[Rfam]
The record is a 139-nucleotide RNA from Halopolyspora algeriensis, which matches "Glycine riboswitch aptamer" in Rfam.
Taxonomically the source falls in Halopolyspora (Bacteria, Bacillati, Actinomycetota, Actinomycetes).
This family represents the bacterial glycine riboswitch.
RNA sequence: UGACGCCGCGCGGGAGAGACUCCAUGCCCGUCGGCAAGAGCCGAGUACAGCGGGCCCUCCCGGCCGGCAGGCCUGCAUGGAGCGCCGAAGGAGCAAUACUCCCCGUCAAACUCUCAGGCUCAGUCACCGCACGGCACCA
Numbered sequence: 001u002g003a004c005g006c007c008g009c010g011c012g013g014g015a016g017a018g019a020c021u022c023c024a025u026g027c028c029c030g031u032c033g034g035c036a037a038g039a040g041c042c043g044a045g046u047a048c049a050g051c052g053g054g055c056c057c058u059c060c061c062g063g064c065c066g067g068c069a070g071g072c073c074u075g076c077a078u079g080g081a082g083c084g085c086c087g088a089a090g091g092a093g094c095a096a097u098a099c100u101c102c103c104c105g106u107c108a109a110a111c112u113c114u115c116a117g118g119c120u121c122a123g124u125c126a127c128c129g130c131a132c133g134g135c136a137c138c139a
Base pairs, nucleotide, nucleotide: 006134007133008132010130011129012128013127020082021081022080023079024078025077026076027075084119085118086117087115088114091113092112093111098106099105

The match comes from Rfam's covariance-model search (53 bits).